[Rfam]
RNA sequence: AAUAUAUAGUGGCAAACUACUCGAAAGGGUAAGGGCGCAAAACUAUAGGGGCUACAGUACAUUUGUUACUAUGCCAGCCAGUUGCAAAA
Dot-bracket structure: ...........((...((((((....))))).)...))..((((...(((((....(((.......)))...)))..))))))......

Rfam assigns this 89-nucleotide RNA sequence from Lottiidibacillus patelloidae to the family "c-di-GMP-I riboswitch aptamer". The family's consensus secondary structure is taken from published work. A search with the family's covariance model found it, with a score of 63 bits.